Rfam assigns this 111-nucleotide sequence from Eragrostis curvula to the family "Small nucleolar RNA Z279/snoR105/snoR108".
RNA sequence: GGGAAAUGAGGAGUGGUCAGACCUCGCAAUUUUUAUGCGAGAGGGGUGCCCCGCCCCAACCAAGCCUGUUACGACAAUAGGGGCAUCCCAAGUCAUUUACCAUCUGAUCCC
Numbered sequence: 001g002g003g004a005a006a007u008g009a010g011g012a013g014u015g016g017u018c019a020g021a022c023c024u025c026g027c028a029a030u031u032u033u034u035a036u037g038c039g040a041g042a043g044g045g046g047u048g049c050c051c052c053g054c055c056c057c058a059a060c061c062a063a064g065c066c067u068g069u070u071a072c073g074a075c076a077a078u079a080g081g082g083g084c085a086u087c088c089c090a091a092g093u094c095a096u097u098u099a100c101c102a103u104c105u106g107a108u109c110c111c
Base pairs, nucleotide, nucleotide: 001111002110003109004108014102015101016100017099023041024040025039026038027037044089045088046087047085048084049082050081066080067079068078069077

A search with the family's covariance model found it, with a score of 92 bits. Rfam describes the family as follows. This family includes the plant snoRNAs known as Z279, snoR105 and snoR108. The source organism's lineage runs through Eukaryota, Euphyllophyta, Magnoliopsida, Petrosaviidae and Eragrostis.